RNA sequence: UCUAUUGUUUAAAAUAUGCCUUGUAUAAGUUCAAGAAUAGGGCUUGAGCGUUUCUACCAGCUACCGUAAAUAGCUUAUCUACAAGGGAAUACAUUUCCUAU
Dot-bracket structure: ..................(((((((...(((((((.......))))))).........(((((.......)))))....)))))))...............
Numbered sequence: 001u002c003u004a005u006u007g008u009u010u011a012a013a014a015u016a017u018g019c020c021u022u023g024u025a026u027a028a029g030u031u032c033a034a035g036a037a038u039a040g041g042g043c044u045u046g047a048g049c050g051u052u053u054c055u056a057c058c059a060g061c062u063a064c065c066g067u068a069a070a071u072a073g074c075u076u077a078u079c080u081a082c083a084a085g086g087g088a089a090u091a092c093a094u095u096u097c098c099u100a101u
Stems, first nucleotide, its partner, number of pairs: 019086007029049007059075005